[Rfam]
The record is a 150-nucleotide RNA from Hibiscus syriacus, which matches "Small nucleolar RNA snoR145" in Rfam. The literature on the family includes a 2009 paper in Nucleic Acids Res by Chen and Wu, "Mining small RNA sequencing data: a new approach to identify small nucleolar RNAs in Arabidopsis". The base pairs follow the family's consensus structure, which was predicted with mfold. The organism belongs to Hibiscus, within Eukaryota. The family has 19 seed sequences and 286 matches in Rfam 15.1.
RNA sequence: UGGCGAAGGUCCCAGCAGGAAGGGUGUGAAACUCUUUGAAUCGAAACCUUUCUAACAAAUUAACAAAUGCCUUCGCAAAUCCAUUUUGCGGAAUCGUAGGAUGCCCAAUACUCCAUCUUUGGAGCGUCUUGAACCUUCGGCUACAUUUUC
Numbered sequence: 001u002g003g004c005g006a007a008g009g010u011c012c013c014a015g016c017a018g019g020a021a022g023g024g025u026g027u028g029a030a031a032c033u034c035u036u037u038g039a040a041u042c043g044a045a046a047c048c049u050u051u052c053u054a055a056c057a058a059a060u061u062a063a064c065a066a067a068u069g070c071c072u073u074c075g076c077a078a079a080u081c082c083a084u085u086u087u088g089c090g091g092a093a094u095c096g097u098a099g100g101a102u103g104c105c106c107a108a109u110a111c112u113c114c115a116u117c118u119u120u121g122g123a124g125c126g127u128c129u130u131g132a133a134c135c136u137u138c139g140g141c142u143a144c145a146u147u148u149u150c
Stems, first nucleotide, its partner, number of pairs: 003076007012019002028052003035045004088141002091138003100128002103125002105122004